[Rfam]
RNA sequence: UGCAGCCGUGUCAAAUUCGGCACCUGCCUGCCGUGGCGGACGCUGGCCCAGAAGGCUGCCACAGAAACAUGCGGCUCAUGGGCCCUGCCCCGCACUCGGGCUCAGGGAUAAGUUUGGUCGCAGACACGG
Dot-bracket structure: .((((............((((..(((((......)))))..))))..........))))...........((((((......(((((...............)))))........))))))........
This 129-nucleotide sequence from Oryctolagus cuniculus belongs to the Rfam family "Small nucleolar RNA SNORA5". The family's consensus secondary structure was predicted with RNAfold. From the family's description: ACA5 is a member of the H/ACA class of snoRNA that guide the sites of modification of uridines to pseudouridines. NCBI's taxonomy places the organism under Eukaryota, Teleostomi, Tetrapoda, Leporidae, Oryctolagus. By type it is an H/ACA-box small nucleolar RNA. Gene Ontology terms of the family: nucleolus and RNA processing.